Description: A member of the RNA family "Plastid-psbA-1 3UTR RNA" from Macleaya cordata, 70 nucleotides long. Plastid psbA-1 is a non-coding RNA (ncRNA) present in plastids. It was identified in inverted repeat sequences in the 3 prime untranslate region (3UTR) of photosystem II quinone-binding protein (psbA).

[Rfam]
RNA sequence: AUGAAUCGUUGAAGUUGAAGGAGCAAUACCGAAUUUCUUGUUCUAUCAAGAGGGUGGGUAUUGCUCCUUC
Numbered sequence: 001a002u003g004a005a006u007c008g009u010u011g012a013a014g015u016u017g018a019a020g021g022a023g024c025a026a027u028a029c030c031g032a033a034u035u036u037c038u039u040g041u042u043c044u045a046u047c048a049a050g051a052g053g054g055u056g057g058g059u060a061u062u063g064c065u066c067c068u069u070c
Stems, first nucleotide, its partner, number of pairs: 017070013032055001035052005